The family of this 223-nucleotide RNA sequence from Natronoglycomyces albus is "c-di-AMP riboswitch aptamer (ydaO/yuaA leader)". The source organism's lineage runs through Bacteria, Actinomycetota, Glycomycetales, Glycomycetaceae and Natronoglycomyces.

RNA sequence: ACCGCUUAACCGCCGAGGCUUCCAAACUACGGUGGACCGGGGACCCAAUCUACCGGGGUGAAUCCUGAGAUGGCGCUUGCAUAUGAGCGCGGCACACUUCUGCGACGCGAUCGCACCUAAGUCAAGGUGGCGUAUUGCGGUCAACAUCACAGGUAGGGCGACGAGACACUUCUUCCCGCCCGAACCCGUCAGCUAACCCGGUCGGCGGCAUAUCGGAAGAAGG
Numbered sequence: 001a002c003c004g005c006u007u008a009a010c011c012g013c014c015g016a017g018g019c020u021u022c023c024a025a026a027c028u029a030c031g032g033u034g035g036a037c038c039g040g041g042g043a044c045c046c047a048a049u050c051u052a053c054c055g056g057g058g059u060g061a062a063u064c065c066u067g068a069g070a071u072g073g074c075g076c077u078u079g080c081a082u083a084u085g086a087g088c089g090c091g092g093c094a095c096a097c098u099u100c101u102g103c104g105a106c107g108c109g110a111u112c113g114c115a116c117c118u119a120a121g122u123c124a125a126g127g128u129g130g131c132g133u134a135u136u137g138c139g140g141u142c143a144a145c146a147u148c149a150c151a152g153g154u155a156g157g158g159c160g161a162c163g164a165g166a167c168a169c170u171u172c173u174u175c176c177c178g179c180c181c182g183a184a185c186c187c188g189u190c191a192g193c194u195a196a197c198c199c200g201g202u203c204g205g206c207g208g209c210a211u212a213u214c215g216g217a218a219g220a221a222g223g
Stems, first nucleotide, its partner, number of pairs: 003207004010035006036202006046055001056187003064153004156181004